[Rfam]
RNA sequence: GCGGGCGAGGUUCUAGCCCAACCCUCGAUAAAAAACUAAGGAAAG
Numbered sequence: 001g002c003g004g005g006c007g008a009g010g011u012u013c014u015a016g017c018c019c020a021a022c023c024c025u026c027g028a029u030a031a032a033a034a035a036c037u038a039a040g041g042a043a044a045g
Stems, first nucleotide, its partner, number of pairs: 006027005016037001
Shown here is a 45-nucleotide sequence from Salisediminibacterium halotolerans, a member of the family "PreQ1 (pre queuosine) riboswitch aptamer".
NCBI's taxonomy places the organism under Bacteria, Bacillati, Bacillota, Bacilli, Salisediminibacterium.
The literature on the family includes a 2004 paper in J Biol Chem by Reader et al., "Identification of four genes necessary for biosynthesis of the modified nucleoside queuosine".
The match comes from Rfam's covariance-model search (49 bits).
Pairs were carried over by alignment from the consensus structure.
From the family's description: This family is a bacterial riboswitch that binds to the metabolite preQ1, an intermediate in the biosynthesis of the modified nucleoside queuosine from GTP. One example of this riboswitch is located in the leader of the Bacillus subtilis ykvJKLM (queCDEF) operon which encodes four genes necessary for queuosine production. PreQ1 binding to the riboswitch aptamer is thought to induce premature transcription termination within the leader to down-regulate expression of these genes.
The family has 43 seed sequences and 873 matches in Rfam 15.1.